Background:
This 56-nucleotide RNA sequence from Devosia crocina belongs to the Rfam family "sul1 RNA". Lineage of the source: Bacteria > Pseudomonadota > Alphaproteobacteria > Devosiaceae > Devosia. By type it is a riboswitch. A search with the family's covariance model found it, with a score of 75 bits.
RNA sequence: CCUGGACCCGGUGCAAUUCCGGGUGGCUCUUCCGGCCGCCGAUCCGCCGGAUACUC
Dot-bracket structure: .....((((((.......))))))......((((((.........)))))).....